Shown here is an 82-nucleotide RNA from Pseudorhodoferax sp. Leaf274, a member of the family "SucA RNA motif".
The match comes from Rfam's covariance-model search (81 bits).
Lineage of the source: Bacteria > Pseudomonadota > Betaproteobacteria > Comamonadaceae > Pseudorhodoferax.
Pairs were carried over by alignment from the consensus structure, which is taken from published work.
[Rfam]
RNA sequence: UCGCAUCCGCCAACCGGUUCAGCCGUGCCGCGGAAGGUUAAUUCACCAGCUAAUGUUCCCCCAAGGGGAGCGGAGGUCAGCG
Numbered sequence: 001u002c003g004c005a006u007c008c009g010c011c012a013a014c015c016g017g018u019u020c021a022g023c024c025g026u027g028c029c030g031c032g033g034a035a036g037g038u039u040a041a042u043u044c045a046c047c048a049g050c051u052a053a054u055g056u057u058c059c060c061c062c063a064a065g066g067g068g069a070g071c072g073g074a075g076g077u078c079a080g081c082g
Base pairs, nucleotide, nucleotide: 002082003081004080006034007033008032009031010030015025016024017023018022036047037046038045049077050076051075055071056070057069058068059067060066061065